[Rfam]
A member of the RNA family "RAGATH-18 RNA", 73 nucleotides long. Rfam's curators write: Actinobacteria, Firmicutes, Fusobacteria, Thermotogae (1 example). The sequence is in the family's curated seed alignment. The family's RNA type in Rfam is small RNA.
RNA sequence: ACUGUGGACUAUACAAGAACUUGUAAGUAGUGAAUUAGAAAUAAUCACAAAAGCAUAUAGGUUGAAGCAGUAA
Numbered sequence: 001a002c003u004g005u006g007g008a009c010u011a012u013a014c015a016a017g018a019a020c021u022u023g024u025a026a027g028u029a030g031u032g033a034a035u036u037a038g039a040a041a042u043a044a045u046c047a048c049a050a051a052a053g054c055a056u057a058u059a060g061g062u063u064g065a066a067g068c069a070g071u072a073a
Stems, first nucleotide, its partner, number of pairs: 001071005009060005022055003030048003035044002